The record is an 87-nucleotide RNA sequence from Myotis myotis, which matches "mir-9195 microRNA precursor family" in Rfam. Lineage of the source: Eukaryota > Mammalia > Theria > Vespertilionidae > Myotis. Its family is annotated with RISC complex and miRNA-mediated post-transcriptional gene silencing in the Gene Ontology. The base pairs follow the family's consensus structure, which was predicted with RNAalifold.
[Rfam]
RNA sequence: AGAGGCCCUCCGUGGCCAGGGUGGAAUGCUUGCCUUGUUGCUGCAGCGACGAAGCAAGCAUUCCACCAGGCUACUCACACUGACCGC
Numbered sequence: 001a002g003a004g005g006c007c008c009u010c011c012g013u014g015g016c017c018a019g020g021g022u023g024g025a026a027u028g029c030u031u032g033c034c035u036u037g038u039u040g041c042u043g044c045a046g047c048g049a050c051g052a053a054g055c056a057a058g059c060a061u062u063c064c065a066c067c068a069g070g071c072u073a074c075u076c077a078c079a080c081u082g083a084c085c086g087c
Stems, first nucleotide, its partner, number of pairs: 004084001006082001012074006020067014037050005